Rfam assigns this 477-nucleotide RNA sequence from Rhizodiscina lignyota to the family "RNase MRP". The family's RNA type in Rfam is ribozyme. Pairs were carried over by alignment from the consensus structure, which is taken from published work. It scores 102 bits against the family's covariance model. Taxonomically the source falls in Rhizodiscina (Eukaryota, Fungi, leotiomyceta, dothideomyceta).

[Rfam]
RNA sequence: UCCUCGCUCAAAGAAUCGCAGUCGAAGCUUACAUCCAGAGCAGCGCUUCGGCGCUGUCUCAUCAAACACAAAACUGCUUUGGGAGAAAGUCCCCGGACACCUCCGUGGUCUUCGGACCAAGGAGCAGGCGUAACCGCGCCGCCACAGAAGCACUGCGGCUUGCCUUUUCGUCUCAUCCUCCAUCUCUUCUCAUCUUCCUCCGCGCUACCGUUUGUACUCUUGUGUACUGCCGUUUCGGGUACUUGAGGUGCUCAGGGCCUCUUGGAUGAAGAUAUGAGUCCUGCCCUUGAUGCAUGUCUUAGUCUCCUGAUUCGGCGUGUUGUGCUUGAGGAGGUAUGUGGACUGCAGGGUGGCAAGAGUGGGCUCAAGGGUACGAAGAGGGUUUUUCGUCGAGGUCGAUAGUCAUGCGAUUGCUCCUUACUUUCGGCUUCGGCUGGGGAUGGGAGUAACUCGAUGGGGCUUAUUCUUGAUGCGAGG
Numbered sequence: 001u002c003c004u005c006g007c008u009c010a011a012a013g014a015a016u017c018g019c020a021g022u023c024g025a026a027g028c029u030u031a032c033a034u035c036c037a038g039a040g041c042a043g044c045g046c047u048u049c050g051g052c053g054c055u056g057u058c059u060c061a062u063c064a065a066a067c068a069c070a071a072a073a074c075u076g077c078u079u080u081g082g083g084a085g086a087a088a089g090u091c092c093c094c095g096g097a098c099a100c101c102u103c104c105g106u107g108g109u110c111u112u113c114g115g116a117c118c119a120a121g122g123a124g125c126a127g128g129c130g131u132a133a134c135c136g137c138g139c140c141g142c143c144a145c146a147g148a149a150g151c152a153c154u155g156c157g158g159c160u161u162g163c164c165u166u167u168u169c170g171u172c173u174c175a176u177c178c179u180c181c182a183u184c185u186c187u188u189c190u191c192a193u194c195u196u197c198c199u200c201c202g203c204g205c206u207a208c209c210g211u212u213u214g215u216a217c218u219c220u221u222g223u224g225u226a227c228u229g230c231c232g233u234u235u236c237g238g239g240u241a242c243u244u245g246a247g248g249u250g251c252u253c254a255g256g257g258c259c260u261c262u263u264g265g266a267u268g269a270a271g272a273u274a275u276g277a278g279u280c281c282u283g284c285c286c287u288u289g290a291u292g293c294a295u296g297u298c299u300u301a302g303u304c305u306c307c308u309g310a311u312u313c314g315g316c317g318u319g320u321u322g323u324g325c326u327u328g329a330g331g332a333g334g335u336a337u338g339u340g341g342a343c344u345g346c347a348g349g350g351u352g353g354c355a356a357g358a359g360u361g362g363g364c365u366c367a368a369g370g371g372u373a374c375g376a377a378g379a380g381g382g383u384u385u386u387u388c389g390u391c392g393a394g395g396u397c398g399a400u401a402g403u404c405a406u407g408c409g410a411u412u413g414c415u416c417c418u419u420a421c422u423u424u425c426g427g428c429u430u431c432g433g434c435u436g437g438g439g440a441u442g443g444g445a446g447u448a449a450c451u452c453g454a455u456g457g458g459g460c461u462u463a464u465u466c467u468u469g470a471u472g473c474g475a476g477g
Base pairs, nucleotide, nucleotide: 002477003476004475005474006473007472008470009469010468011467014412015411016410017409018408019407022083023081024080025079026078027077028076041056042055043054044053045052046051087462088461089460091459092458093457094456278351279350280349283346284345287342288341292339293338294337295336304333305332306331307330314326315325316324317323414446415445416444417443418442
Dot-bracket structure: .((((((((((..((((((..(((((((............((((((....))))))...................)))))).)...[[[.[[[[.......................................................................................................................................................................................(((..((..((...((((........((((......((((.....))))...))))..)))).))..))..))).......................................................)))))).(((((.......................))))).........]]]]]]]....)))).))))))